[Rfam]
RNA sequence: AAAAUAGAUAGAGGUUGCGGUGUUAAUUAGUAUAAUGUGGAGCAGGCAUGCAUUGAAGCAUUUGAAAGGUACACAUCGCCGAACGAGUCUGUAGGUAUACAUGAUUCGUGGGACUACAAGGAAUACUUGUAGUACUCCUACUUAAGUAGUGGCGCUAUCACUUGU
Numbered sequence: 001a002a003a004a005u006a007g008a009u010a011g012a013g014g015u016u017g018c019g020g021u022g023u024u025a026a027u028u029a030g031u032a033u034a035a036u037g038u039g040g041a042g043c044a045g046g047c048a049u050g051c052a053u054u055g056a057a058g059c060a061u062u063u064g065a066a067a068g069g070u071a072c073a074c075a076u077c078g079c080c081g082a083a084c085g086a087g088u089c090u091g092u093a094g095g096u097a098u099a100c101a102u103g104a105u106u107c108g109u110g111g112g113a114c115u116a117c118a119a120g121g122a123a124u125a126c127u128u129g130u131a132g133u134a135c136u137c138c139u140a141c142u143u144a145a146g147u148a149g150u151g152g153c154g155c156u157a158u159c160a161c162u163u164g165u
Base pairs, nucleotide, nucleotide: 007159008158009157010156011155017079018078019077020076021075022074024071025070034062035061036060037059038058083109084108085107086106087105088104089103090101091100092099093098110136111135113133114132115131116130117129118128119127120126138149139148140147141146
Record summary:
Rfam assigns this 165-nucleotide RNA from Haloplasma contractile to the family "Lysine riboswitch aptamer". The match comes from Rfam's covariance-model search (78 bits).